RNA sequence: AGCCUUUUAUUUUCCCGCGCCGGCCCCUAUAUUCGGCGGGUCGGCUUGACCGACUAUGGCGAUAAAUGGGCGAUGUAAUAAGCCGUUCGGACCCGGGGGCGGUACCCGGCGCCUCCACCAAAAACCGCUGCUGGUGUCAGCGGCUUUUGCUGGGGGCGAAAUAGGAUCGACGAAGGUGUAAAGAUCGUACUUUUGCCCGGCAUUGUACCACCGUUAUCGGGCUAAACUUGUAGUUGCAAACGACAACUAUGCUGAGGCACGUCUCGCUGCUUAAUGCGGCGCGAUAGUCUCGAAUCAAGUCCUAGGGGUUAGCACUUCUAGGCGGGGUCCGGAGGCACCUGGCAACAGAAGCCUCCACU
Numbered sequence: 001a002g003c004c005u006u007u008u009a010u011u012u013u014c015c016c017g018c019g020c021c022g023g024c025c026c027c028u029a030u031a032u033u034c035g036g037c038g039g040g041u042c043g044g045c046u047u048g049a050c051c052g053a054c055u056a057u058g059g060c061g062a063u064a065a066a067u068g069g070g071c072g073a074u075g076u077a078a079u080a081a082g083c084c085g086u087u088c089g090g091a092c093c094c095g096g097g098g099g100c101g102g103u104a105c106c107c108g109g110c111g112c113c114u115c116c117a118c119c120a121a122a123a124a125c126c127g128c129u130g131c132u133g134g135u136g137u138c139a140g141c142g143g144c145u146u147u148u149g150c151u152g153g154g155g156g157c158g159a160a161a162u163a164g165g166a167u168c169g170a171c172g173a174a175g176g177u178g179u180a181a182a183g184a185u186c187g188u189a190c191u192u193u194u195g196c197c198c199g200g201c202a203u204u205g206u207a208c209c210a211c212c213g214u215u216a217u218c219g220g221g222c223u224a225a226a227c228u229u230g231u232a233g234u235u236g237c238a239a240a241c242g243a244c245a246a247c248u249a250u251g252c253u254g255a256g257g258c259a260c261g262u263c264u265c266g267c268u269g270c271u272u273a274a275u276g277c278g279g280c281g282c283g284a285u286a287g288u289c290u291c292g293a294a295u296c297a298a299g300u301c302c303u304a305g306g307g308g309u310u311a312g313c314a315c316u317u318c319u320a321g322g323c324g325g326g327g328u329c330c331g332g333a334g335g336c337a338c339c340u341g342g343c344a345a346c347a348g349a350a351g352c353c354u355c356c357a358c359u
Stems, first nucleotide, its partner, number of pairs: 040054005058197005068190001070188005083176002087173003093109005110158007198213003203224001205222001208220002325340004331356006

Shown here is a 359-nucleotide sequence from Mesorhizobium sp. Root554, a member of the family "Alphaproteobacteria transfer-messenger RNA". By type it is a non-coding RNA gene. The organism belongs to Mesorhizobium, within Bacteria. The family is grouped with related families in Rfam's "tRNA clan". A search with the family's covariance model found it, with a score of 310 bits. On this family, see Williams and Bartel, RNA 1996: "Phylogenetic analysis of tmRNA secondary structure".